[Rfam]
RNA sequence: GUUGGUGGGUAAUUGCGUGUUGCUGAUGUAACAUGAGGAAAGUCCAUGCUCGCACUGACUGUGAUGUCAGUAGUGUUCGUGCUAGCUGAAAAAAUAAGGCUAGGCAGCCAGAAAUGGUUGACGGCCAAUGAAAGACCUAAAGGUAACUAUGGUUGAGUAGUUGUGAAAGUGCCACAGAAACGAGCCAGUGUAGAAAUAUAUUGGAUGGAACGCGGUAAACCCCUCGAGCGGGCAACCCAAACUUUGGUAGGGGCGCUUGAUCUAGUGAACUGAAACGAUGAUCGGGGAGACUUAAUUGUCUGAGAUAGAUGAUUACCACUACUUAAUUAAUUGCCAAUUUUUAAGUAGAACAAAACAUGGCUUAUAGCU
Dot-bracket structure: ...(((((((((((.((((((........))))))....[[[.[[[[[(((((((((((......)))))).....(((.(((((((..........))))))(((((((....)))))).)((.((((....((((...((....))..)))).....)))).....(((((...........((((((((....)))))))).........)))..))))).))))))))...(((...........)))...(((((((.................))))))).((((......)))).........))))))).((((((((..............)))))))).......]]]]]]]].).)))
Numbered sequence: 001g002u003u004g005g006u007g008g009g010u011a012a013u014u015g016c017g018u019g020u021u022g023c024u025g026a027u028g029u030a031a032c033a034u035g036a037g038g039a040a041a042g043u044c045c046a047u048g049c050u051c052g053c054a055c056u057g058a059c060u061g062u063g064a065u066g067u068c069a070g071u072a073g074u075g076u077u078c079g080u081g082c083u084a085g086c087u088g089a090a091a092a093a094a095u096a097a098g099g100c101u102a103g104g105c106a107g108c109c110a111g112a113a114a115u116g117g118u119u120g121a122c123g124g125c126c127a128a129u130g131a132a133a134g135a136c137c138u139a140a141a142g143g144u145a146a147c148u149a150u151g152g153u154u155g156a157g158u159a160g161u162u163g164u165g166a167a168a169g170u171g172c173c174a175c176a177g178a179a180a181c182g183a184g185c186c187a188g189u190g191u192a193g194a195a196a197u198a199u200a201u202u203g204g205a206u207g208g209a210a211c212g213c214g215g216u217a218a219a220c221c222c223c224u225c226g227a228g229c230g231g232g233c234a235a236c237c238c239a240a241a242c243u244u245u246g247g248u249a250g251g252g253g254c255g256c257u258u259g260a261u262c263u264a265g266u267g268a269a270c271u272g273a274a275a276c277g278a279u280g281a282u283c284g285g286g287g288a289g290a291c292u293u294a295a296u297u298g299u300c301u302g303a304g305a306u307a308g309a310u311g312a313u314u315a316c317c318a319c320u321a322c323u324u325a326a327u328u329a330a331u332u333g334c335c336a337a338u339u340u341u342u343a344a345g346u347a348g349a350a351c352a353a354a355a356c357a358u359g360g361c362u363u364a365u366a367g368c369u
Stems, first nucleotide, its partner, number of pairs: 004369003007365001008317007016035006040363003044360005049232005054071006077227003081223001082103006104122001105120006123222002126163004134154004141148002169220002171216003185204008236252003256286007288301004319348008
Shown here is a 369-nucleotide RNA from Weissella diestrammenae, a member of the family "Bacterial RNase P class B". The family is grouped with related families in Rfam's "RNaseP clan". Ribonuclease P (RNase P) is a ubiquitous endoribonuclease, found in archaea, bacteria and eukarya as well as chloroplasts and mitochondria. Its best characterised activity is the generation of mature 5'-ends of tRNAs by cleaving the 5'-leader elements of precursor-tRNAs. Cellular RNase Ps are ribonucleoproteins. A search with the family's covariance model found it, with a score of 325 bits. The source organism's lineage runs through Bacteria, Bacillati, Bacilli, Lactobacillaceae and Weissella.